[Rfam]
This 81-nucleotide RNA sequence from Raphidocelis subcapitata belongs to the Rfam family "Small nucleolar RNA SNORD24". A search with the family's covariance model found it, with a score of 61 bits. For this family Rfam cites "Position within the host intron is critical for efficient processing of box C/D snoRNAs in mammalian cells" (Hirose and Steitz, Proc Natl Acad Sci U S A, 2001). Pairs were carried over by alignment from the consensus structure, which was predicted with PFOLD. The organism belongs to Raphidocelis, within Eukaryota.
RNA sequence: GGCCGGUGAUGUCAUAAAAGUUAUUUGCUACUCUUGAGGUCACCGGUGACGAAACUCAACUCCACCAAGAUCUCUGAGGCC
Numbered sequence: 001g002g003c004c005g006g007u008g009a010u011g012u013c014a015u016a017a018a019a020g021u022u023a024u025u026u027g028c029u030a031c032u033c034u035u036g037a038g039g040u041c042a043c044c045g046g047u048g049a050c051g052a053a054a055c056u057c058a059a060c061u062c063c064a065c066c067a068a069g070a071u072c073u074c075u076g077a078g079g080c081c
Base pairs, nucleotide, nucleotide: 001081002080003079004078